This 76-nucleotide RNA from Ameiurus melas belongs to the Rfam family "mir-7563 microRNA precursor family".
Rfam links the family to the GO terms RISC complex and miRNA-mediated post-transcriptional gene silencing.
The family's consensus secondary structure was predicted with RNAalifold.
RNA sequence: AUCGUGUACUUACCUACUAUAUAGUAGUUUAGAUACGUGUAUUUCUCCUACUAUAUAGUAGGUAAGUACACGGUUG
Number, nucleotide and partner (000 for none) at each position: 001a074002u073003c072004g071005u070006g069007u068008a067009c066010u065011u064012a063013c062014c061015u060016a000017c058018u057019a056020u055021a054022u053023a052024g051025u050026a049027g048028u000029u000030u000031a044032g000033a042034u041035a040036c000037g000038u000039g000040u035041a034042u033043u000044u031045c000046u000047c000048c027049u026050a025051c024052u023053a022054u021055a020056u019057a018058g017059u000060a015061g014062g013063u012064a011065a010066g009067u008068a007069c006070a005071c004072g003073g002074u001075u000076g000